[Rfam]
RNA sequence: AGUUAAUCGAUAUGUUUAGAUCCUUAGCAACUUCUCUAAUGGUGAUUCGAGGCGUCUGGCACGCCGGCUGAAGAGGACCCUAGUUGGUCCUAGAACGGCCUGAGGUAGAGGGGUUUUAGUCGGUAGGUCCGAGGACUUCUUCCUCGGGAAUCCGACACUACCGGGUCGUACGGACGGCUGGGUGUCUUAUGAAGAUUUUCCCUCUUCCACGAAA
Numbered sequence: 001a002g003u004u005a006a007u008c009g010a011u012a013u014g015u016u017u018a019g020a021u022c023c024u025u026a027g028c029a030a031c032u033u034c035u036c037u038a039a040u041g042g043u044g045a046u047u048c049g050a051g052g053c054g055u056c057u058g059g060c061a062c063g064c065c066g067g068c069u070g071a072a073g074a075g076g077a078c079c080c081u082a083g084u085u086g087g088u089c090c091u092a093g094a095a096c097g098g099c100c101u102g103a104g105g106u107a108g109a110g111g112g113g114u115u116u117u118a119g120u121c122g123g124u125a126g127g128u129c130c131g132a133g134g135a136c137u138u139c140u141u142c143c144u145c146g147g148g149a150a151u152c153c154g155a156c157a158c159u160a161c162c163g164g165g166u167c168g169u170a171c172g173g174a175c176g177g178c179u180g181g182g183u184g185u186c187u188u189a190u191g192a193a194g195a196u197u198u199u200c201c202c203u204c205u206u207c208c209a210c211g212a213a214a
Base pairs, nucleotide, nucleotide: 021077022076023075024074025073084213085212087210088209104208105207107205108204110201111200112199119156120155121154122153123152128148129147130146131145132144133143134142135141158184161181162180163179
R2 RNA element: a 214-nucleotide sequence from Agrilus planipennis. About the family: This family represents the 3' UTR region of the R2 retrotransposable element. This family is known to interact with the R2-encoded reverse transcriptase in a reaction known as target primed reverse transcription (TPRT). Pairs were carried over by alignment from the consensus structure, which is taken from published work. The family's RNA type in Rfam is cis-regulatory element. Rfam links the family to the GO term regulation of reverse transcription. On this family, see Ruschak et al., RNA 2004: "Secondary structure models of the 3' untranslated regions of diverse R2 RNAs".